[Rfam]
RNA: sroC RNA
Organism: Kosakonia cowanii
RNA sequence: ACUAAUUACAACCAUUAGGGGCGGGUUUACCUGCCCUCUCGAUUGUCGAAGCUGCACGGACAGACUAUGCGUUGAGUGGCCGUUCCCCACUCAGCGUGAACAUUCGCACUUCACACAAUCUUCGAGGGUAGCGCUGCUACCCUUUUUUUUCUGGA
Numbered sequence: 001a002c003u004a005a006u007u008a009c010a011a012c013c014a015u016u017a018g019g020g021g022c023g024g025g026u027u028u029a030c031c032u033g034c035c036c037u038c039u040c041g042a043u044u045g046u047c048g049a050a051g052c053u054g055c056a057c058g059g060a061c062a063g064a065c066u067a068u069g070c071g072u073u074g075a076g077u078g079g080c081c082g083u084u085c086c087c088c089a090c091u092c093a094g095c096g097u098g099a100a101c102a103u104u105c106g107c108a109c110u111u112c113a114c115a116c117a118a119u120c121u122u123c124g125a126g127g128g129u130a131g132c133g134c135u136g137c138u139a140c141c142c143u144u145u146u147u148u149u150u151c152u153g154g155a
Stems, first nucleotide, its partner, number of pairs: 019036004023031002037127005042119005048112002061098002071095009